[Rfam]
RNA sequence: AAUAAUAAGGGUCUUCUCUUCCCAGUUCUUCCCAGAAUUGGGAAAAGCUGGAUUGCGGGGGGCAGGGACGAAGAGA
Numbered sequence: 001a002a003u004a005a006u007a008a009g010g011g012u013c014u015u016c017u018c019u020u021c022c023c024a025g026u027u028c029u030u031c032c033c034a035g036a037a038u039u040g041g042g043a044a045a046a047g048c049u050g051g052a053u054u055g056c057g058g059g060g061g062g063c064a065g066g067g068a069c070g071a072a073g074a075g076a
Base pairs, nucleotide, nucleotide: 014059015058016057018055022051023050024049025048029044030043031042032041033040034039
Rfam assigns this 76-nucleotide sequence from Colobus angolensis to the family "mir-320 microRNA precursor family". Rfam links the family to the GO terms miRNA-mediated post-transcriptional gene silencing, negative regulation of gene expression and RISC complex. The source organism's lineage runs through Eukaryota, Metazoa, Craniata, Mammalia and Colobus angolensis.